Background
The family of this 96-nucleotide RNA from Callosobruchus maculatus is "mir-210 microRNA precursor family". On this family, see Cai et al., Proc Natl Acad Sci U S A 2005: "Kaposi's sarcoma-associated herpesvirus expresses an array of viral microRNAs in latently infected cells".
RNA sequence: UAGAAACUCACUGCAGCUGCUGGACGCUGCACAAGAGAGUCUUUUUAAACUCUUGUGCGUGUGACAGCGGCUAUUGUGGGUAUUCUUAUUCAACGG
Number, nucleotide and partner (000 for none) at each position: 001u000002a000003g000004a000005a000006a081007c080008u079009c078010a077011c076012u000013g000014c000015a072016g071017c070018u069019g068020c067021u066022g065023g000024a000025c061026g060027c000028u059029g058030c057031a056032c055033a054034a000035g052036a051037g000038a000039g000040u000041c000042u000043u000044u000045u000046u000047a000048a000049a000050c000051u036052c035053u000054u033055g032056u031057g030058c029059g028060u026061g025062u000063g000064a000065c022066a021067g020068c019069g018070g017071c016072u015073a000074u000075u000076g011077u010078g009079g008080g007081u006082a000083u000084u000085c000086u000087u000088a000089u000090u000091c000092a000093a000094c000095g000096g000